[Rfam]
RNA sequence: CUCUCUUUUCUUUCUGCAGAUGGGCUACAGUCCCACUCCCUAUUAUGUAGAUAGCAGAAGGAAAGGGGCUCCUUCUGCAUUAUGUCUUAGGUCUGGCAACUUCUCAUCUACCAGUUCUAUUCCCAAGCAUGGGACAUGA
Dot-bracket structure: ((.((.........((..((((((.......)))).))..)).......)).))....................((((..............((((.(..........).))))............))).)........
Numbered sequence: 001c002u003c004u005c006u007u008u009u010c011u012u013u014c015u016g017c018a019g020a021u022g023g024g025c026u027a028c029a030g031u032c033c034c035a036c037u038c039c040c041u042a043u044u045a046u047g048u049a050g051a052u053a054g055c056a057g058a059a060g061g062a063a064a065g066g067g068g069c070u071c072c073u074u075c076u077g078c079a080u081u082a083u084g085u086c087u088u089a090g091g092u093c094u095g096g097c098a099a100c101u102u103c104u105c106a107u108c109u110a111c112c113a114g115u116u117c118u119a120u121u122c123c124c125a126a127g128c129a130u131g132g133g134a135c136a137u138g139a
Stems, first nucleotide, its partner, number of pairs: 001054002004051002015042002019038002021035004075131001076129003093114004098109001
Small nucleolar RNA SNORA57: a 139-nucleotide sequence from Tupaia belangeri. By type it is an H/ACA-box small nucleolar RNA. A reference for the family is Vitali et al. (2003), "Identification of 13 novel human modification guide RNAs", Nucleic Acids Res. Lineage of the source: Eukaryota > Deuterostomia > Gnathostomata > Boreoeutheria > Tupaia belangeri. About the family: U99 belongs to the H/ACA class of snoRNAs which are thought to guide the sites of modification of uridines to pseudouridines, the target for this family is unknown.